Source information
A member of the RNA family "Glycine riboswitch aptamer" from Bordetella sp. N, 103 nucleotides long. It scores 54 bits against the family's covariance model.

RNA sequence: ACGCAUCGUGCGGGAGAGAGCGGCUACUGUUACAUGACAGGCGCCGCCACCGAAGGCGCAAUUCGCCCAGAAUCGCUCAGGUAACCGAUACCGCAUCAUGCCU
Numbered sequence: 001a002c003g004c005a006u007c008g009u010g011c012g013g014g015a016g017a018g019a020g021c022g023g024c025u026a027c028u029g030u031u032a033c034a035u036g037a038c039a040g041g042c043g044c045c046g047c048c049a050c051c052g053a054a055g056g057c058g059c060a061a062u063u064c065g066c067c068c069a070g071a072a073u074c075g076c077u078c079a080g081g082u083a084a085c086c087g088a089u090a091c092c093g094c095a096u097c098a099u100g101c102c103u
Stems, first nucleotide, its partner, number of pairs: 006098001008096006020047004049082003052078002056076003062069001